RNA: Nuclear RNase P
Organism: Salvator merianae
RNA sequence: CGGGGAGGAAGCUUGCUGUAGAGGCCACGUGCUAGGUGUCCUUCACUCUUUCUGCACCUCUGUGGGAAGGUCUGCAGCACGGGCCACAUACCACCCUAGCAGGGUGCCACUUCUUGAAGGCGGGUGAGUUCCCAGUAAUCUGGGUCUCUGGCACAGCCUAAGAUUGGGGCAAGAGAAGCGAUGGAGGGGCUCAUUCCUCUCCACACGGAUACCUCUGUGGCUUGACAGAAAUUUGGGAAUGACUCAACAGUAAGCAACUAUGGGCAGAUGUGAAGCAGAAGCUGUGGCAGCUUCAUAACCCAAUUCAGACUAGUCGCUUCCCAG
Numbered sequence: 001c002g003g004g005g006a007g008g009a010a011g012c013u014u015g016c017u018g019u020a021g022a023g024g025c026c027a028c029g030u031g032c033u034a035g036g037u038g039u040c041c042u043u044c045a046c047u048c049u050u051u052c053u054g055c056a057c058c059u060c061u062g063u064g065g066g067a068a069g070g071u072c073u074g075c076a077g078c079a080c081g082g083g084c085c086a087c088a089u090a091c092c093a094c095c096c097u098a099g100c101a102g103g104g105u106g107c108c109a110c111u112u113c114u115u116g117a118a119g120g121c122g123g124g125u126g127a128g129u130u131c132c133c134a135g136u137a138a139u140c141u142g143g144g145u146c147u148c149u150g151g152c153a154c155a156g157c158c159u160a161a162g163a164u165u166g167g168g169g170c171a172a173g174a175g176a177a178g179c180g181a182u183g184g185a186g187g188g189g190c191u192c193a194u195u196c197c198u199c200u201c202c203a204c205a206c207g208g209a210u211a212c213c214u215c216u217g218u219g220g221c222u223u224g225a226c227a228g229a230a231a232u233u234u235g236g237g238a239a240u241g242a243c244u245c246a247a248c249a250g251u252a253a254g255c256a257a258c259u260a261u262g263g264g265c266a267g268a269u270g271u272g273a274a275g276c277a278g279a280a281g282c283u284g285u286g287g288c289a290g291c292u293u294c295a296u297a298a299c300c301c302a303a304u305u306c307a308g309a310c311u312a313g314u315c316g317c318u319u320c321c322c323a324g
Stems, first nucleotide, its partner, number of pairs: 001324001003322002007318002013268002016264002020063001022061003035047004072308003076304001083251002092106005107123002110120003125246006144232002270296007